TPP riboswitch aptamer (THI element): a 107-nucleotide RNA sequence from Desulfitobacterium hafniense. Lineage of the source: Bacteria > Eubacteriales > Desulfitobacteriaceae > Desulfitobacterium > Desulfitobacterium hafniense.

[Rfam]
Nucleotides: 107
Base pairs, nucleotide, nucleotide: 008093009092011057012056013055014054017029018028019027020026036051037050038049039048040047062087063086064085068081069080070079071078
Number, partner (000 for none) and nucleotide at each position: 001000a002000g003000a004000a005000u006000a007000g008093u009092a010000u011057u012056g013055g014054g015000g016000a017029g018028c019027u020026g021000g022000a023000a024000a025000a026020c027019g028018g029017c030000u031000g032000a033000g034000a035000g036051g037050g038049a039048a040047a041000c042000g043000a044000g045000u046000g047040u048039u049038u050037c051036c052000g053000a054014c055013c056012c057011a058000u059000u060000g061000a062087c063086c064085u065000g066000a067000u068081c069080u070079a071078g072000g073000u074000a075000a076000u077000g078071c079070u080069a081068g082000c083000g084000g085064a086063g087062g088000g089000a090000c091000u092009u093008a094000g095000g096000a097000u098000a099000c100000a101000u102000g103000a104000g105000c106000u107000u